This 141-nucleotide RNA sequence from Trichonephila clavata belongs to the Rfam family "Wolbachia sRNA 46". Taxonomically the source falls in Trichonephila (Eukaryota, Metazoa, Bilateria, Orbiculariae).
RNA sequence: UGUCAUCCCAGUGCUUGACACUGGGAUCCAGGAAUUUUAUUAAGUUGGUGAGCAUAAAAAUAGCUGUUUUACGUUAAAAUACAAUGUUUUGAUGAUUAUGGAAAGGCUGGAUUCCAGUGUCAAGCACUGGAAUGACACCAU
Numbered sequence: 001u002g003u004c005a006u007c008c009c010a011g012u013g014c015u016u017g018a019c020a021c022u023g024g025g026a027u028c029c030a031g032g033a034a035u036u037u038u039a040u041u042a043a044g045u046u047g048g049u050g051a052g053c054a055u056a057a058a059a060a061u062a063g064c065u066g067u068u069u070u071a072c073g074u075u076a077a078a079a080u081a082c083a084a085u086g087u088u089u090u091g092a093u094g095a096u097u098a099u100g101g102a103a104a105g106g107c108u109g110g111a112u113u114c115c116a117g118u119g120u121c122a123a124g125c126a127c128u129g130g131a132a133u134g135a136c137a138c139c140a141u
Stems, first nucleotide, its partner, number of pairs: 001137006008130024

The pairing is the family consensus, mapped onto this sequence.